Shown here is a 38-nucleotide sequence from Lindera glauca, a member of the family "Plastid-ccsA-ndhD-2 3UTR RNA". Rfam's curators put it in the seed alignment. The family's consensus secondary structure was predicted with LocARNA. Rfam 15.1 lists 875 matches to the family in 517 species. Rfam's curators write: Plastid ccsA-ndhD-2 is a non-coding RNA (ncRNA) recognised in plastids. Taxonomically the source falls in Lindera (Eukaryota, Streptophyta, Mesangiospermae, Magnoliidae). It is annotated as a cis-regulatory element.

[Rfam]
RNA sequence: UUCGAACCAUUUGAAUCAAGUAGUGAUUCAAAUGGUUC
Number, nucleotide and partner (000 for none) at each position: 001u000002u000003c000004g038005a037006a036007c035008c034009a033010u032011u031012u030013g029014a028015a027016u026017c025018a024019a000020g000021u000022a000023g000024u018025g017026a016027u015028u014029c013030a012031a011032a010033u009034g008035g007036u006037u005038c004